[Rfam]
RNA: c-di-GMP-II-GAG riboswitch aptamer
RNA sequence: UCCACAGGUAGAGGCUAAGAAGGUUGCCCCGAAAAAACACGGGCGCCCUAGGGGACGAGCGGAGCCAUUGGCGCGACCGGCUAUCCGCGAG
Numbered sequence: 001u002c003c004a005c006a007g008g009u010a011g012a013g014g015c016u017a018a019g020a021a022g023g024u025u026g027c028c029c030c031g032a033a034a035a036a037a038c039a040c041g042g043g044c045g046c047c048c049u050a051g052g053g054g055a056c057g058a059g060c061g062g063a064g065c066c067a068u069u070g071g072c073g074c075g076a077c078c079g080g081c082u083a084u085c086c087g088c089g090a091g
Stems, first nucleotide, its partner, number of pairs: 001091001003089001005087001007085005013066003022060001024058003028054002041078002043074005